[Rfam]
RNA sequence: ACAGUACAAACUGAGCAGACCGUAACAGUCCGUUAUGGAGUCGGGUCACAUGCGUGACAGUGGAAAUGUUCAUCCACGGGACAGUU
Numbered sequence: 001a002c003a004g005u006a007c008a009a010a011c012u013g014a015g016c017a018g019a020c021c022g023u024a025a026c027a028g029u030c031c032g033u034u035a036u037g038g039a040g041u042c043g044g045g046u047c048a049c050a051u052g053c054g055u056g057a058c059a060g061u062g063g064a065a066a067u068g069u070u071c072a073u074c075c076a077c078g079g080g081a082c083a084g085u086u
Stems, first nucleotide, its partner, number of pairs: 010085004016080001018042003022036005045058005060077005

The record is an 86-nucleotide RNA from Marvinbryantia formatexigens, which matches "NiCo (Nickel/Cobalt) riboswitch aptamer" in Rfam. Taxonomically the source falls in Marvinbryantia formatexigens (Bacteria, Clostridia, Lachnospiraceae, Marvinbryantia). Gene Ontology terms of the family: metal ion homeostasis and cobalt ion binding. A reference for the family is Furukawa et al. (2015), "Bacterial riboswitches cooperatively bind Ni(2+) or Co(2+) ions and control expression of heavy metal transporters", Mol Cell. Its Rfam clan is "NiCo_riboswitches".